Flavo-1 RNA: an 87-nucleotide RNA sequence from Winogradskyella epiphytica. NCBI's taxonomy places the organism under Bacteria, Bacteroidota, Flavobacteriales, Flavobacteriaceae, Winogradskyella.
[Rfam]
Nucleotides: 087
Stems, first nucleotide, its partner, number of pairs: 014079003018075002023070002028065004034060010
Number, partner (000 for none) and nucleotide at each position: 001000a002000g003000u004000a005000a006000g007000c008000g009000c010000g011000u012000u013000a014079a015078g016077g017000a018075u019074a020000g021000a022000a023070g024069u025000a026000g027000a028065a029064a030063u031062c032000c033000u034060u035059u036058u037057u038056u039055u040054g041053c042052u043051g044000c045000c046000a047000u048000a049000u050000a051043u052042g053041g054040c055039a056038a057037a058036a059035a060034a061000a062031g063030a064029u065028u066000g067000u068000a069024a070023c071000g072000g073000a074019u075018a076000g077016c078015c079014u080000g081000u082000u083000a084000a085000a086000a087000c